[Rfam]
RNA sequence: UGGCUGUGAUGACAACUAGAUUACUUGUUCAUAACUUAAUUUCAGUUAAGGACCAAACCUGAUGACUUUAUUUGUGCGUGUCUGAGCUGG
Numbered sequence: 001u002g003g004c005u006g007u008g009a010u011g012a013c014a015a016c017u018a019g020a021u022u023a024c025u026u027g028u029u030c031a032u033a034a035c036u037u038a039a040u041u042u043c044a045g046u047u048a049a050g051g052a053c054c055a056a057a058c059c060u061g062a063u064g065a066c067u068u069u070a071u072u073u074g075u076g077c078g079u080g081u082c083u084g085a086g087c088u089g090g
Base pairs, nucleotide, nucleotide: 001089002088003087004086